[Rfam]
RNA: Bacterial RNase P class A
RNA sequence: UCAGAUGGCCGGACGGCCGCGGGCCUUCGGGUUCGAGGAAAGUCCGGGCUCCAUGGCGGCAGGGUGCCGGGUAACGCCCGGCUGGAGCGAUCCAAGGGAUAGCGCCACAGAGAAUGAACCGCCUUCGCCAGUCGGCGACGGUAAGGGUGAAAAGGUGGAGUAAGAGCCCACCGCCGUCCCGGCAACGGGACGGGCAUGGCAAGCCCCGCCCGGAGCAAAACCGAAUAGGGACAGGGUGGCCUGUACGGCCGGCGCCGCCGCCAGCGCUACUUGUCCGGGUUGGUUGCUUGAGGCCACGUGCAAGCGUGUGUCCCAGAUGAAUGGUCGUCACCGCCUCGGCGGGACAGAACCCGGCUUACACGGCCGUCUGACCUU
Numbered sequence: 001u002c003a004g005a006u007g008g009c010c011g012g013a014c015g016g017c018c019g020c021g022g023g024c025c026u027u028c029g030g031g032u033u034c035g036a037g038g039a040a041a042g043u044c045c046g047g048g049c050u051c052c053a054u055g056g057c058g059g060c061a062g063g064g065u066g067c068c069g070g071g072u073a074a075c076g077c078c079c080g081g082c083u084g085g086a087g088c089g090a091u092c093c094a095a096g097g098g099a100u101a102g103c104g105c106c107a108c109a110g111a112g113a114a115u116g117a118a119c120c121g122c123c124u125u126c127g128c129c130a131g132u133c134g135g136c137g138a139c140g141g142u143a144a145g146g147g148u149g150a151a152a153a154g155g156u157g158g159a160g161u162a163a164g165a166g167c168c169c170a171c172c173g174c175c176g177u178c179c180c181g182g183c184a185a186c187g188g189g190a191c192g193g194g195c196a197u198g199g200c201a202a203g204c205c206c207c208g209c210c211c212g213g214a215g216c217a218a219a220a221c222c223g224a225a226u227a228g229g230g231a232c233a234g235g236g237u238g239g240c241c242u243g244u245a246c247g248g249c250c251g252g253c254g255c256c257g258c259c260g261c262c263a264g265c266g267c268u269a270c271u272u273g274u275c276c277g278g279g280u281u282g283g284u285u286g287c288u289u290g291a292g293g294c295c296a297c298g299u300g301c302a303a304g305c306g307u308g309u310g311u312c313c314c315a316g317a318u319g320a321a322u323g324g325u326c327g328u329c330a331c332c333g334c335c336u337c338g339g340c341g342g343g344a345c346a347g348a349a350c351c352c353g354g355c356u357u358a359c360a361c362g363g364c365c366g367u368c369u370g371a372c373c374u375u
Base pairs, nucleotide, nucleotide: 001371002370003369004368005367006366007365008364009363010362011359012329013328014327015326016325017324018323020035021034022033023032024031025030040357041356042355044354045353046352047351048350049215050214051213052212058262059261060260062211063210064209065208066207067081068080069079070078071077082096083094084093085092086091097206098205102204103203104200105199106198119146120145121142122141123140125138126137127136128135129134154172155171156170157169158168173195174193175192176191177190178189179188180187181186219285220284221283222282229276230275231274232273233272234271254268256266257265258264292312293311294310295308296307297306298305299304